[Rfam]
RNA: mir-338 microRNA precursor family
Organism: Alligator mississippiensis
Nucleotides: 069
Base pairs, nucleotide, nucleotide: 006064007063008062009061010060012058013057014056015054016053017052018051019050020049021048022047023046
Number, partner (000 for none) and nucleotide at each position: 001000u002000c003000c004000c005000c006064a007063a008062c009061a010060a011000u012058a013057u014056c015054c016053u017052g018051g019050u020049g021048c022047u023046g024000a025000g026000c027000g028000a029000g030000u031000u032000g033000c034000g035000c036000a037000c038000a039000g040000a041000g042000a043000c044000u045000c046023c047022a048021g049020c050019a051018u052017c053016a054015g055000u056014g057013a058012u059000u060010u061009u062008g063007u064006u065000g066000a067000g068000g069000a